RNA: mir-4872 microRNA precursor family
RNA sequence: UCACAUGCGGUGCCGGGGCAAUAAAGACUCUGACUUCUGUCAAAAUCAGAAUCUUAUUUCCCUGGUUCUUUAUGGG
Numbered sequence: 001u002c003a004c005a006u007g008c009g010g011u012g013c014c015g016g017g018g019c020a021a022u023a024a025a026g027a028c029u030c031u032g033a034c035u036u037c038u039g040u041c042a043a044a045a046u047c048a049g050a051a052u053c054u055u056a057u058u059u060c061c062c063u064g065g066u067u068c069u070u071u072a073u074g075g076g
Stems, first nucleotide, its partner, number of pairs: 001076002004074004009069002012066006020058003024055004029050005035043001